[Rfam]
RNA sequence: AACGCCCUGGCCUGUUUGCCAGCGGGUGAUGUCCCUCUCCCGAUACGCAAACAAACGGGGGCUACCAGUGGAGUUGGUGUGCAUGUCCGCCAGACGGAAAGCCUAAAAACUCCCUGUAGUCACCACCUUGAACUUUCGGGUUCAAGGGCCUACGCCUGCAGCGGCAGGCCGGGGAGUUU
Numbered sequence: 001a002a003c004g005c006c007c008u009g010g011c012c013u014g015u016u017u018g019c020c021a022g023c024g025g026g027u028g029a030u031g032u033c034c035c036u037c038u039c040c041c042g043a044u045a046c047g048c049a050a051a052c053a054a055a056c057g058g059g060g061g062c063u064a065c066c067a068g069u070g071g072a073g074u075u076g077g078u079g080u081g082c083a084u085g086u087c088c089g090c091c092a093g094a095c096g097g098a099a100a101g102c103c104u105a106a107a108a109a110c111u112c113c114c115u116g117u118a119g120u121c122a123c124c125a126c127c128u129u130g131a132a133c134u135u136u137c138g139g140g141u142u143c144a145a146g147g148g149c150c151u152a153c154g155c156c157u158g159c160a161g162c163g164g165c166a167g168g169c170c171g172g173g174g175a176g177u178u179u
Stems, first nucleotide, its partner, number of pairs: 002177002005174011017163003031149004036144001040140002058124002060121006067115001070113006081102002086098004

The family of this 179-nucleotide sequence from Azomonas agilis is "6S / SsrS RNA". Pairs were carried over by alignment from the consensus structure, which is taken from published work. The organism belongs to Azomonas, within Bacteria. A reference for the family is Trotochaud and Wassarman (2005), "A highly conserved 6S RNA structure is required for regulation of transcription", Nat Struct Mol Biol.